[Rfam]
RNA sequence: GGUUUCCAUUGGUGUAAAUCUAAUCACCUGAAUUUAAGAUGAUAAGAAAUUAUCCAUUGUUAACAAAUGGUUAUUCAUUAAGCGUAGGAAAUCUUAU
Numbered sequence: 001g002g003u004u005u006c007c008a009u010u011g012g013u014g015u016a017a018a019u020c021u022a023a024u025c026a027c028c029u030g031a032a033u034u035u036a037a038g039a040u041g042a043u044a045a046g047a048a049a050u051u052a053u054c055c056a057u058u059g060u061u062a063a064c065a066a067a068u069g070g071u072u073a074u075u076c077a078u079u080a081a082g083c084g085u086a087g088g089a090a091a092u093c094u095u096a097u
Stems, first nucleotide, its partner, number of pairs: 009023004053086001055084001056078002059075001061073004
The family of this 97-nucleotide RNA sequence from Capsicum annuum is "Plastid-rps12 3UTR RNA". By type it is a cis-regulatory element. On this family, see Richter et al., Plant Commun 2023: "Retrograde signaling in plants: A critical review focusing on the GUN pathway and beyond". From the family's description: Plastid rpl20 is a non-coding RNA (ncRNA) recognised in plastids.